RNA: Purine riboswitch aptamer
RNA sequence: UAAAAACUUUAUAUUUUAUUGCGUAUAAUUUAGGGGAUAUGGCCCAAAGUCUCUACCAGACUACCGUAAAUGGUCUGACUACGCAGGUGAAGUAAUUCUUU
Numbered sequence: 001u002a003a004a005a006a007c008u009u010u011a012u013a014u015u016u017u018a019u020u021g022c023g024u025a026u027a028a029u030u031u032a033g034g035g036g037a038u039a040u041g042g043c044c045c046a047a048a049g050u051c052u053c054u055a056c057c058a059g060a061c062u063a064c065c066g067u068a069a070a071u072g073g074u075c076u077g078a079c080u081a082c083g084c085a086g087g088u089g090a091a092g093u094a095a096u097u098c099u100u101u
Stems, first nucleotide, its partner, number of pairs: 019086007029048003033045003057077007